[Rfam]
RNA sequence: GUCAUCGCGAGGUGGGGUCUGGAGGAAGCCCAACGCAAAUUGUCGGGGCGACGAACAGGAACUGGAUAUGAGGUGUGACGUACUCGGGGCGAGCUGGCACGUGACAGCGAAGCCCUCCAUCCGCAACGGGGUGCGUUUUAUAAAUCCAGCGUCUACGCCAGGAAAGUCUAGGGU
Numbered sequence: 001g002u003c004a005u006c007g008c009g010a011g012g013u014g015g016g017g018u019c020u021g022g023a024g025g026a027a028g029c030c031c032a033a034c035g036c037a038a039a040u041u042g043u044c045g046g047g048g049c050g051a052c053g054a055a056c057a058g059g060a061a062c063u064g065g066a067u068a069u070g071a072g073g074u075g076u077g078a079c080g081u082a083c084u085c086g087g088g089g090c091g092a093g094c095u096g097g098c099a100c101g102u103g104a105c106a107g108c109g110a111a112g113c114c115c116u117c118c119a120u121c122c123g124c125a126a127c128g129g130g131g132u133g134c135g136u137u138u139u140a141u142a143a144a145u146c147c148a149g150c151g152u153c154u155a156c157g158c159c160a161g162g163a164a165a166g167u168c169u170a171g172g173g174u
Stems, first nucleotide, its partner, number of pairs: 002015005028174004035167002040161003044157002046154005062149006073141003077137001079135006087115004093108004
Group II catalytic intron D1-D4-3: a 174-nucleotide RNA sequence from Marinobacter nauticus. Its family is annotated with Group II intron splicing in the Gene Ontology. The sequence is in the family's curated seed alignment. Pairs were carried over by alignment from the consensus structure.